The family of this 94-nucleotide RNA is "skipping-rope RNA". It is one of the family's seed sequences. The base pairs follow the family's consensus structure, which is taken from published work. The family's RNA type in Rfam is small RNA.

RNA sequence: GUGCCUAGAGGCGAGAACGUCCUCCUCACGCACCUACGUUGGGUAAAGUAGCCGCAAGGUGAAGAGAUCGCGGAUUUGCCAUCGCGCUAGGCAU
Numbered sequence: 001g002u003g004c005c006u007a008g009a010g011g012c013g014a015g016a017a018c019g020u021c022c023u024c025c026u027c028a029c030g031c032a033c034c035u036a037c038g039u040u041g042g043g044u045a046a047a048g049u050a051g052c053c054g055c056a057a058g059g060u061g062a063a064g065a066g067a068u069c070g071c072g073g074a075u076u077u078g079c080c081a082u083c084g085c086g087c088u089a090g091g092c093a094u
Stems, first nucleotide, its partner, number of pairs: 001094008011029001013027003019082002023078001031064001032044004069086004